About this RNA:
Rfam assigns this 273-nucleotide RNA from Coffea canephora to the family "MIR159 microRNA precursor family". The match comes from Rfam's covariance-model search (80 bits). The source organism's lineage runs through Eukaryota, Tracheophyta, Mesangiospermae, Gardenieae complex and Coffea.

RNA sequence: GAAAGAGAAGAGGAGCUCCCUUCGGUCCAAGACCGAGGGCUGGGGAGCGGCUAGAGCUGCCAUCUCAUGCAUUCGGUUAUGCUUAAGUAUUCUCUUUUUUUUUUUCUCUCUUUGCAAGGUAAGGUGAUGGAUACUAUGGUGAGCAAGAAUUCAACAACAGGUCUGAUGCGAUGCAUAGAAAUGUUAAGCUUAGCCAAUGCAUGGCGUGGGAGCAACUCCUGUCGCUCACUUUGCCCGCCCAUUGGACUGAAGGGAGCUCCCCGAUGGAUCUCG
Numbered sequence: 001g002a003a004a005g006a007g008a009a010g011a012g013g014a015g016c017u018c019c020c021u022u023c024g025g026u027c028c029a030a031g032a033c034c035g036a037g038g039g040c041u042g043g044g045g046a047g048c049g050g051c052u053a054g055a056g057c058u059g060c061c062a063u064c065u066c067a068u069g070c071a072u073u074c075g076g077u078u079a080u081g082c083u084u085a086a087g088u089a090u091u092c093u094c095u096u097u098u099u100u101u102u103u104u105u106c107u108c109u110c111u112u113u114g115c116a117a118g119g120u121a122a123g124g125u126g127a128u129g130g131a132u133a134c135u136a137u138g139g140u141g142a143g144c145a146a147g148a149a150u151u152c153a154a155c156a157a158c159a160g161g162u163c164u165g166a167u168g169c170g171a172u173g174c175a176u177a178g179a180a181a182u183g184u185u186a187a188g189c190u191u192a193g194c195c196a197a198u199g200c201a202u203g204g205c206g207u208g209g210g211a212g213c214a215a216c217u218c219c220u221g222u223c224g225c226u227c228a229c230u231u232u233g234c235c236c237g238c239c240c241a242u243u244g245g246a247c248u249g250a251a252g253g254g255a256g257c258u259c260c261c262c263g264a265u266g267g268a269u270c271u272c273g
Stems, first nucleotide, its partner, number of pairs: 013259008023249007057212002060209003066203008